[Rfam]
RNA: Guanidine-I riboswitch aptamer
RNA sequence: UAAAAGGUUUUCUAGGGUUCCGCAACGUUAGUUGGACUGGUCCGAGAGGAAACUCACAGCUAAUCGCUGUGCCACGGAAGGAUAAAAACCUGGGAGGA
Numbered sequence: 001u002a003a004a005a006g007g008u009u010u011u012c013u014a015g016g017g018u019u020c021c022g023c024a025a026c027g028u029u030a031g032u033u034g035g036a037c038u039g040g041u042c043c044g045a046g047a048g049g050a051a052a053c054u055c056a057c058a059g060c061u062a063a064u065c066g067c068u069g070u071g072c073c074a075c076g077g078a079a080g081g082a083u084a085a086a087a088a089c090c091u092g093g094g095a096g097g098a
Stems, first nucleotide, its partner, number of pairs: 007053006015043002020040002022037001023034004055071006073093001075096001079091003